This 77-nucleotide RNA from Crocodylus porosus belongs to the Rfam family "Mammalian CPEB3 ribozyme". About the family: The mammalian CPEB3 ribozyme is a self cleaving RNA located in the second intron of the CPEB3 gene which belongs to a family of genes regulating messenger RNA polyadenylation. This ribozyme is highly conserved and found only in mammals. The CPEB3 ribozyme is structurally and biochemically related to the human hepatitis delta virus (HDV) ribozyme and the HDV ribozyme is proposed to have arisen from the human transcriptome. There is currently only one other known self cleaving ribozyme in mammals, the CoTC motif. The organism belongs to Crocodylus, within Eukaryota.
[Rfam]
RNA sequence: AGGGUACAAGUUUGAGGCCAAAGCAGAAGUGCUCACAGCACAGUCUGUCAGAUUCCAAUGAACCUGAAAAUGCUGCU
Dot-bracket structure: ...............[[[...(((((.((((.......))).]]]...(((.(((....))).)))....).)))))